[Rfam]
RNA sequence: AAAUGGGGAAACUAGGGUUCCGGCCUGUUUGCUAGGCGCUUGGUCCGAGAGUUUCCGGUCUCAUAAUAAUGAGGCUCCACGGAGGGAUAAAAGCCCGGGAGAU
Numbered sequence: 001a002a003a004u005g006g007g008g009a010a011a012c013u014a015g016g017g018u019u020c021c022g023g024c025c026u027g028u029u030u031g032c033u034a035g036g037c038g039c040u041u042g043g044u045c046c047g048a049g050a051g052u053u054u055c056c057g058g059u060c061u062c063a064u065a066a067u068a069a070u071g072a073g074g075c076u077c078c079a080c081g082g083a084g085g086g087a088u089a090a091a092a093g094c095c096c097g098g099g100a101g102a103u
Stems, first nucleotide, its partner, number of pairs: 007056006015046002020043002022040001023037005057076008078098001080101001084096003